[Rfam]
RNA: BsrG
RNA sequence: GGAAUAGAUGACGCAUAUGAGCGGAUGCGGUGACGCCCUCUGAAAGGGGGUGACGCCAAUGACAGUAUUUCAAGCCAUGACACUUAUGAUAAGUUUUGGAGUGCCUAUCUUGAUGCUGUCAGAUAGAAAGAAAUAAUCCGCCUCAUAUGCUCUUGCAGGAGCUGAGACGGAUUACCGUGAAUAAGUAAUUCAGUUAUAAGCACUGCAUCCGCUCUACGCGGAUAUUGCCAUGCCGUCAGUGUUCGCAGCGCUGGCG
Dot-bracket structure: (.(((..(((..(((((((((..(((....(.(..((((.....))))..).).......(((((((.......(............)..........(((.......)))..)))))))...............)))...)))))))).....................................................)..)))((((.....))))..))).).....((((((((((...))))))))))